[Rfam]
RNA sequence: CCGUGGGACACCCCUCCCCAACGGGGGGCGCUUAUCUGUAAGGAUACCAGAC
Numbered sequence: 001c002c003g004u005g006g007g008a009c010a011c012c013c014c015u016c017c018c019c020a021a022c023g024g025g026g027g028g029c030g031c032u033u034a035u036c037u038g039u040a041a042g043g044a045u046a047c048c049a050g051a052c
Stems, first nucleotide, its partner, number of pairs: 011028006033046005